[Rfam]
The family of this 46-nucleotide sequence from Felis catus is "Histone 3' UTR stem-loop".
A search with the family's covariance model found it, with a score of 40 bits.
By type it is a cis-regulatory element.
RNA sequence: UCAAAGGCUCUUUUAAGAGCCACCCACCCUCUCAAAUAAAGAGUUG
Numbered sequence: 001u002c003a004a005a006g007g008c009u010c011u012u013u014u015a016a017g018a019g020c021c022a023c024c025c026a027c028c029c030u031c032u033c034a035a036a037u038a039a040a041g042a043g044u045u046g
Base pairs, nucleotide, nucleotide: 006021007020008019009018010017011016

On this family, see Williams and Marzluff, Nucleic Acids Res 1995: "The sequence of the stem and flanking sequences at the 3' end of histone mRNA are critical determinants for the binding of the stem-loop binding protein".